[Rfam]
RNA sequence: UGAUGCCCCUCCCCCACCCCUGAAGAUCCCAGGUGGGCGAGGGACUAGUCAGGAUGGAUC
Numbered sequence: 001u002g003a004u005g006c007c008c009c010u011c012c013c014c015c016a017c018c019c020c021u022g023a024a025g026a027u028c029c030c031a032g033g034u035g036g037g038c039g040a041g042g043g044a045c046u047a048g049u050c051a052g053g054a055u056g057g058a059u060c
Stems, first nucleotide, its partner, number of pairs: 007043005013037006025060005
Shown here is a 60-nucleotide RNA from Octodon degus, a member of the family "Antizyme RNA frameshifting stimulation element". The base pairs follow the family's consensus structure, which is taken from published work. Rfam's curators write: This family represents a structural element which is found in antizyme mRNA and is known to promote frameshifting. Antizyme genes have have two partially overlapping open reading frames, the second, which encodes the functional protein requires +1 translational frameshifting. It is annotated as a frameshift element. Taxonomically the source falls in Octodon (Eukaryota, Teleostomi, Sarcopterygii, Mammalia). Its family is annotated with translational frameshifting in the Gene Ontology. For this family Rfam cites "Identification of a new antizyme mRNA +1 frameshifting stimulatory pseudoknot in a subset of diverse invertebrates and its apparent absence in intermediate species" (Ivanov et al., J Mol Biol, 2004).